[Rfam]
RNA: Alphaproteobacterial ar14
RNA sequence: GGUUUCCUGCCCCUCCUCCUCCUCCCUGAGGGGCGGAACAAGACGAAGCCCUCCUCCUCCCUGGCUUCGUCAAUGACAGAAGGCCCGUGGCACCCGCCACGGGCCUUUUGC
Numbered sequence: 001g002g003u004u005u006c007c008u009g010c011c012c013c014u015c016c017u018c019c020u021c022c023u024c025c026c027u028g029a030g031g032g033g034c035g036g037a038a039c040a041a042g043a044c045g046a047a048g049c050c051c052u053c054c055u056c057c058u059c060c061c062u063g064g065c066u067u068c069g070u071c072a073a074u075g076a077c078a079g080a081a082g083g084c085c086c087g088u089g090g091c092a093c094c095c096g097c098c099a100c101g102g103g104c105c106u107u108u109u110g111c
Stems, first nucleotide, its partner, number of pairs: 005037003009034007042071009081106011